[Rfam]
RNA sequence: UCUCUUUUAUGAUGAGAUACCAUUAGUUAUCCCUGUCUGAAUUAUAACUCUUGUGUUAUAACAACUGUUGAGAAAAAACAACUCUGAAAAAAAA
Numbered sequence: 001u002c003u004c005u006u007u008u009a010u011g012a013u014g015a016g017a018u019a020c021c022a023u024u025a026g027u028u029a030u031c032c033c034u035g036u037c038u039g040a041a042u043u044a045u046a047a048c049u050c051u052u053g054u055g056u057u058a059u060a061a062c063a064a065c066u067g068u069u070g071a072g073a074a075a076a077a078a079c080a081a082c083u084c085u086g087a088a089a090a091a092a093a094a
Stems, first nucleotide, its partner, number of pairs: 001094001003092001005090003
Dot-bracket structure: (.(.(((................................................................................))).).)
The family of this 94-nucleotide sequence from Penicillium polonicum is "Small nucleolar RNA R38". The source organism's lineage runs through Eukaryota, Ascomycota, saccharomyceta, leotiomyceta and Penicillium. A reference for the family is Bachellerie et al. (1995), "Antisense snoRNAs: a family of nucleolar RNAs with long complementarities to rRNA", Trends Biochem Sci. About the family: snoR38 is a C/D box small nucleolar RNA conserved across yeast, human, Arabidopsis and rice. It is encoded in the intron of elongation factor-1 gamma in both pombe and cerevisiae. snoR38 guides the methylation of 2'-O-ribose sites in 28S rRNA. The family's RNA type in Rfam is C/D-box small nucleolar RNA.